[Rfam]
RNA sequence: UCGAUCAAUCGGAUGGUCGCGGAAUGGCUUGCCCAUUUCGAGGAAAGUCCGGGCUCCGCAGGGCAGGAUGGCGGAUAACGUCCGCCGGGGUUGGUUUUAAGACUAACUUUAGGGAAAGUGCCACAGAAAUUAUACCGCAAUGCCUUGGCAUUGUAAGGGUGAAAUGGUGCGGUAAGAGCGCACCGCGCUUUGGGUAACCAGAGUGGCAGGGUAAACCCCAUCCGGAGCAAGACCAAAUAGGAGUGAACGCCACCCCACAAGGUGGCUCAUGCGCCCUGCAUGUCACUCGGGUAGGUUGCUUGAGAUACUUGGUAACAGGUAAUCCAGAUGAAUGACCAUCCAAUGGCGUAUGCUAUGGACAGAACCCGGCUUAUAGAUUGAUCGACAAC
Numbered sequence: 001u002c003g004a005u006c007a008a009u010c011g012g013a014u015g016g017u018c019g020c021g022g023a024a025u026g027g028c029u030u031g032c033c034c035a036u037u038u039c040g041a042g043g044a045a046a047g048u049c050c051g052g053g054c055u056c057c058g059c060a061g062g063g064c065a066g067g068a069u070g071g072c073g074g075a076u077a078a079c080g081u082c083c084g085c086c087g088g089g090g091u092u093g094g095u096u097u098u099a100a101g102a103c104u105a106a107c108u109u110u111a112g113g114g115a116a117a118g119u120g121c122c123a124c125a126g127a128a129a130u131u132a133u134a135c136c137g138c139a140a141u142g143c144c145u146u147g148g149c150a151u152u153g154u155a156a157g158g159g160u161g162a163a164a165u166g167g168u169g170c171g172g173u174a175a176g177a178g179c180g181c182a183c184c185g186c187g188c189u190u191u192g193g194g195u196a197a198c199c200a201g202a203g204u205g206g207c208a209g210g211g212u213a214a215a216c217c218c219c220a221u222c223c224g225g226a227g228c229a230a231g232a233c234c235a236a237a238u239a240g241g242a243g244u245g246a247a248c249g250c251c252a253c254c255c256c257a258c259a260a261g262g263u264g265g266c267u268c269a270u271g272c273g274c275c276c277u278g279c280a281u282g283u284c285a286c287u288c289g290g291g292u293a294g295g296u297u298g299c300u301u302g303a304g305a306u307a308c309u310u311g312g313u314a315a316c317a318g319g320u321a322a323u324c325c326a327g328a329u330g331a332a333u334g335a336c337c338a339u340c341c342a343a344u345g346g347c348g349u350a351u352g353c354u355a356u357g358g359a360c361a362g363a364a365c366c367c368g369g370c371u372u373a374u375a376g377a378u379u380g381a382u383c384g385a386c387a388a389c
Stems, first nucleotide, its partner, number of pairs: 001385010011374001012340007020040008045372003049369005054227004061277003066223005071085005086112001087110010113218002118216002120212003135158002137154007166184006185207001186205008231297004241288006268282005304323001306321006
RNA: Bacterial RNase P class A
Organism: Candidatus Odyssella acanthamoebae